[Rfam]
RNA sequence: UGCAGCCCUGUCAAAUUCGGUCCCUACCCUUCUCCGUGGCAGGGACCGGCCAACCGGCUGCCACAGCGAAUUCUGCGGUCCACAUGCCCCACGUCCCCUCCCCGUGGGGCACCAGGGGGUCAGAUCACACCACAGACACAU
Numbered sequence: 001u002g003c004a005g006c007c008c009u010g011u012c013a014a015a016u017u018c019g020g021u022c023c024c025u026a027c028c029c030u031u032c033u034c035c036g037u038g039g040c041a042g043g044g045a046c047c048g049g050c051c052a053a054c055c056g057g058c059u060g061c062c063a064c065a066g067c068g069a070a071u072u073c074u075g076c077g078g079u080c081c082a083c084a085u086g087c088c089c090c091a092c093g094u095c096c097c098c099u100c101c102c103c104g105u106g107g108g109g110c111a112c113c114a115g116g117g118g119g120u121c122a123g124a125u126c127a128c129a130c131c132a133c134a135g136a137c138a139c140a141u
Base pairs, nucleotide, nucleotide: 002061003060004059005058018048019047020046021045022044023043024042025041027039028038075133077131078130079129087119088118089117090116092115
The family of this 141-nucleotide sequence from Patagioenas fasciata is "Small nucleolar RNA SNORA5". About the family: ACA5 is a member of the H/ACA class of snoRNA that guide the sites of modification of uridines to pseudouridines. Rfam links the family to the GO terms nucleolus and RNA processing. Its Rfam clan is "SNORA5 clan". By type it is an H/ACA-box small nucleolar RNA. The family's consensus secondary structure was predicted with RNAfold.